[Rfam]
RNA sequence: GUUUAGCAAUUGCGUUAACGAUUGAAACGACAUCUUUUUUUGCUCUUUCUGCAAAAAAGAUAAAGUGUAAAGCGUGUAAAAAC
Numbered sequence: 001g002u003u004u005a006g007c008a009a010u011u012g013c014g015u016u017a018a019c020g021a022u023u024g025a026a027a028c029g030a031c032a033u034c035u036u037u038u039u040u041u042g043c044u045c046u047u048u049c050u051g052c053a054a055a056a057a058a059g060a061u062a063a064a065g066u067g068u069a070a071a072g073c074g075u076g077u078a079a080a081a082a083c
Base pairs, nucleotide, nucleotide: 018075019074020073022071023070027066028065032061033060034059037057038056039055040054041053042052043051
RNA: Flavo-1 RNA
Organism: Pedobacter psychrophilus